[Rfam]
The record is a 115-nucleotide sequence from Desmospora activa, which matches "Ribosomal protein L20 leader" in Rfam. From the family's description: This family is a putative r-protein leader autoregulatory structure found in B. subtilis and other low-GC Gram-positive bacteria. It is located in the 5' untranslated regions of mRNAs encoding initiation factor 3 followed by ribosomal proteins L35 and L20 (infC-rpmI-rplT).
RNA sequence: GUAGGAAAGCAGAAGCGCCCGCUUCUCACCUGAUCGACGCACGGGCUGUUGACAGGUCUUGAUUCCGGAUGAGGAUUUUCAAGGUGUGGGCGUCUGCCUACACCUUUCCUGUUUU
Numbered sequence: 001g002u003a004g005g006a007a008a009g010c011a012g013a014a015g016c017g018c019c020c021g022c023u024u025c026u027c028a029c030c031u032g033a034u035c036g037a038c039g040c041a042c043g044g045g046c047u048g049u050u051g052a053c054a055g056g057u058c059u060u061g062a063u064u065c066c067g068g069a070u071g072a073g074g075a076u077u078u079u080c081a082a083g084g085u086g087u088g089g090g091c092g093u094c095u096g097c098c099u100a101c102a103c104c105u106u107u108c109c110u111g112u113u114u115u
Base pairs, nucleotide, nucleotide: 011026012025013024014023015022016021028057029056030055036050037049038048039046040045085102086101087100088099089098090097091096